RNA: permuted transfer-messenger RNA
Organism: Agaricicola taiwanensis
RNA sequence: GGCGAUAAACGGACAUCGAAAUAAACCAUUCGGACCCGGGGGCGGUACCCGGCGCCUCCACCAAAAUGAGCCUGUGGGCUCAUUCUGAUGGGGGCGAAAUAGGAUCGACGAGGGUGUAAAGGGUGCUCUUUUGCUCGGCAUGGUACCGCCGUUAUCGGACCAAACCUGUAGUUGCAAACGACAACUAUGCUCCGGUUGCUCAGGCCGCGUAA
Numbered sequence: 001g002g003c004g005a006u007a008a009a010c011g012g013a014c015a016u017c018g019a020a021a022u023a024a025a026c027c028a029u030u031c032g033g034a035c036c037c038g039g040g041g042g043c044g045g046u047a048c049c050c051g052g053c054g055c056c057u058c059c060a061c062c063a064a065a066a067u068g069a070g071c072c073u074g075u076g077g078g079c080u081c082a083u084u085c086u087g088a089u090g091g092g093g094g095c096g097a098a099a100u101a102g103g104a105u106c107g108a109c110g111a112g113g114g115u116g117u118a119a120a121g122g123g124u125g126c127u128c129u130u131u132u133g134c135u136c137g138g139c140a141u142g143g144u145a146c147c148g149c150c151g152u153u154a155u156c157g158g159a160c161c162a163a164a165c166c167u168g169u170a171g172u173u174g175c176a177a178a179c180g181a182c183a184a185c186u187a188u189g190c191u192c193c194g195g196u197u198g199c200u201c202a203g204g205c206c207g208c209g210u211a212a
Base pairs, nucleotide, nucleotide: 001135002134003133004132005131014125015124016123017122026114027113030111031110032109036052037051038050039049040048053096054095055094056093057092058091059090136151137150138149139148